[Rfam]
RNA: MIR1520 microRNA precursor family
RNA sequence: UUCUUAUUGGAUAAUGACGGGUCACAUGUUAUGGUCUGAUUGGUCAAUGAAAACAAUGCAUUUUAUCUUCUAUGGAGUUGACAUCCAAUCAGAACAUCACAUGUCACAGCCAUCAUUC
Dot-bracket structure: ....................((.(.((...((..(((.(((((.........................................))))).)))..))...)).).))...........
Numbered sequence: 001u002u003c004u005u006a007u008u009g010g011a012u013a014a015u016g017a018c019g020g021g022u023c024a025c026a027u028g029u030u031a032u033g034g035u036c037u038g039a040u041u042g043g044u045c046a047a048u049g050a051a052a053a054c055a056a057u058g059c060a061u062u063u064u065a066u067c068u069u070c071u072a073u074g075g076a077g078u079u080g081a082c083a084u085c086c087a088a089u090c091a092g093a094a095c096a097u098c099a100c101a102u103g104u105c106a107c108a109g110c111c112a113u114c115a116u117u118c
Stems, first nucleotide, its partner, number of pairs: 021107002024104001026102002031097002035093003039089005